[Rfam]
RNA sequence: AAAAUCCAGCAUGAGAAAAGGUUAGCCACCCUCUCAGAACUGAACCCCACACCCGGUCUGGUAACAGGCUGAUAUGAAGCUGGGGGGAAGGGAUACCAGGCCACAAUGGAAGUGAAGGUUAUAAGCCCCGAAAUUCUGUCGAUUUUGGAAGCCGACGUUAUCUGUGUAACGGAAGGCAGCAAUCGCACCACCGAAAUUAAGCAUCUCCAGUCUUGGGAUAUAGCAGAGAGCUCUGCGACACGGCGAGGUGAUGUGAGUCCAACGGGGUCUAAGACCG
Number, nucleotide and partner (000 for none) at each position: 001a000002a000003a000004a000005u000006c000007c000008a000009g000010c000011a000012u036013g035014a034015g033016a032017a000018a000019a000020g030021g029022u028023u000024a000025g000026c000027c000028a022029c021030c020031c000032u016033c015034u014035c013036a012037g000038a000039a000040c090041u089042g000043a000044a000045c085046c084047c083048c000049a000050c076051a075052c000053c000054c071055g070056g069057u068058c067059u066060g065061g000062u000063a000064a000065c060066a059067g058068g057069c056070u055071g054072a000073u000074a000075u051076g050077a000078a000079g000080c000081u000082g000083g047084g046085g045086g000087g000088a000089a041090g040091g000092g000093a000094u000095a000096c000097c000098a000099g000100g000101c000102c000103a000104c000105a000106a000107u000108g000109g000110a000111a000112g000113u000114g000115a000116a000117g000118g000119u000120u000121a000122u271123a000124a000125g268126c267127c266128c265129c264130g263131a000132a000133a000134u000135u000136c000137u000138g000139u000140c000141g000142a000143u000144u000145u262146u261147g260148g259149a000150a258151g177152c176153c175154g000155a000156c171157g170158u169159u168160a000161u000162c000163u000164g000165u000166g000167u000168a159169a158170c157171g156172g000173a000174a000175g153176g152177c151178a000179g000180c000181a000182a000183u256184c255185g254186c253187a252188c000189c250190a249191c248192c247193g000194a000195a000196a000197u000198u000199a000200a000201g000202c000203a000204u000205c000206u000207c000208c000209a000210g000211u000212c000213u000214u000215g000216g000217g000218a000219u000220a000221u000222a000223g000224c000225a000226g000227a000228g000229a000230g000231c000232u000233c000234u000235g000236c000237g000238a000239c000240a000241c000242g000243g000244c000245g000246a000247g192248g191249u190250g189251a000252u187253g186254u185255g184256a183257g000258u150259c148260c147261a146262a145263c130264g129265g128266g127267g126268u125269c000270u000271a122272a000273g000274a000275c000276c000277g000

The record is a 277-nucleotide sequence from Candidatus Methanoperedens sp., which matches "Group II catalytic intron D1-D4-6" in Rfam.
Taxonomically the source falls in Candidatus Methanoperedens (Archaea, Methanobacteriati, Methanobacteriota, ANME-2 cluster).
Rfam describes the family as follows. Group II introns are found in rRNA, tRNA and mRNA of organelles in fungi, plants and protists, and also in mRNA in bacteria.
A search with the family's covariance model found it, with a score of 97 bits.
Rfam 15.1 lists 1,617 matches to the family in 661 species.